[Rfam]
RNA sequence: GGAGGUGAUUGGUGCCUGGUGGUGCCCCUGGUCUUCAAAACCAGUGUUGGGCUGAGAAAGUCCUGGGUGGGUUCGAUUCCCAUUCGCCUCC
Number, nucleotide and partner (000 for none) at each position: 001g091002g090003a089004g088005g087006u086007g085008a084009u000010u000011g026012g025013u024014g023015c022016c021017u000018g000019g000020u000021g016022g015023u014024g013025c012026c011027c000028c044029u043030g042031g041032u040033c000034u000035u000036c000037a000038a000039a000040a032041c031042c030043a029044g028045u000046g000047u065048u000049g063050g062051g061052c000053u000054g000055a000056g000057a000058a000059a000060g000061u051062c050063c049064u000065g047066g000067g000068u082069g081070g080071g079072u000073u000074c000075g000076a000077u000078u000079c071080c070081c069082a068083u000084u008085c007086g006087c005088c004089u003090c002091c001
Source information: This 91-nucleotide RNA from Anaerohalosphaera lusitana belongs to the Rfam family "Selenocysteine transfer RNA". The base pairs follow the family's consensus structure, which is taken from published work.